[Rfam]
RNA sequence: UAGAGAUUUGAGUGGCGCUGGCCCUAGUACGAGAGGACCGGGCCGGACUGACCGCUGGUGCACCAGUUGUUCCGCCAGGAGCAUCGCUGGGUAGCUAAGUCGGGACGGGAUAAGCGCUGAAAGCAUAUAAGCGCGAAACCCGCCACAAGAUGGGAUCUCUUUAAAGGGCCGUGGGAGAUGACCACGUUGAUAGGCCAUAGGUGGAAGUGCAGCGAUGCAUGGAGCCGAGUGGUACUAAUUGCCCGUAU
Numbered sequence: 001u002a003g004a005g006a007u008u009u010g011a012g013u014g015g016c017g018c019u020g021g022c023c024c025u026a027g028u029a030c031g032a033g034a035g036g037a038c039c040g041g042g043c044c045g046g047a048c049u050g051a052c053c054g055c056u057g058g059u060g061c062a063c064c065a066g067u068u069g070u071u072c073c074g075c076c077a078g079g080a081g082c083a084u085c086g087c088u089g090g091g092u093a094g095c096u097a098a099g100u101c102g103g104g105a106c107g108g109g110a111u112a113a114g115c116g117c118u119g120a121a122a123g124c125a126u127a128u129a130a131g132c133g134c135g136a137a138a139c140c141c142g143c144c145a146c147a148a149g150a151u152g153g154g155a156u157c158u159c160u161u162u163a164a165a166g167g168g169c170c171g172u173g174g175g176a177g178a179u180g181a182c183c184a185c186g187u188u189g190a191u192a193g194g195c196c197a198u199a200g201g202u203g204g205a206a207g208u209g210c211a212g213c214g215a216u217g218c219a220u221g222g223a224g225c226c227g228a229g230u231g232g233u234a235c236u237a238a239u240u241g242c243c244c245g246u247a248u
Stems, first nucleotide, its partner, number of pairs: 002160008012146004018046007048103005056097003063090005068083006107141003114134005163246001166244004170186005191237003194233005200226002207220005
Annotation: Bacterial large subunit ribosomal RNA: a 248-nucleotide part of an RNA from Flagellimonas eckloniae. Pairs were carried over by alignment from the consensus structure, which is taken from published work. Its Rfam clan is "LSU clan". Taxonomically the source falls in Flagellimonas (Bacteria, Pseudomonadati, Bacteroidota, Flavobacteriia).